[Rfam]
RNA sequence: AUACUUACCUGGACGAGGUCAAUGAGCGAUCAUGAAAACUUAUGACCUAGGUUGGUGACCUCUAUUGCAACUUCAGAGAGGUUUCCAUCUAAGGUAUGUACAAAACGACAGUCUCUACGUCACAAUUUGUGGAAGCAUAAAAUGAAUGAAAUUUUGUU
Numbered sequence: 001a002u003a004c005u006u007a008c009c010u011g012g013a014c015g016a017g018g019u020c021a022a023u024g025a026g027c028g029a030u031c032a033u034g035a036a037a038a039c040u041u042a043u044g045a046c047c048u049a050g051g052u053u054g055g056u057g058a059c060c061u062c063u064a065u066u067g068c069a070a071c072u073u074c075a076g077a078g079a080g081g082u083u084u085c086c087a088u089c090u091a092a093g094g095u096a097u098g099u100a101c102a103a104a105a106c107g108a109c110a111g112u113c114u115c116u117a118c119g120u121c122a123c124a125a126u127u128u129g130u131g132g133a134a135g136c137a138u139a140a141a142a143u144g145a146a147u148g149a150a151a152u153u154u155u156g157u158u
Stems, first nucleotide, its partner, number of pairs: 012121004016048006023042004049090003053087001055084001057082001059080001061078001062076002093116002096112001097110003140158002144155003
The record is a 158-nucleotide RNA from Cucumis melo, which matches "U1 spliceosomal RNA" in Rfam. Pairs were carried over by alignment from the consensus structure, which is taken from published work. Taxonomically the source falls in Cucumis melo subsp. agrestis (Eukaryota, Embryophyta, Tracheophyta, Cucurbitaceae). Rfam describes the family as follows. U1 is a small nuclear RNA (snRNA) component of the spliceosome (involved in pre-mRNA splicing).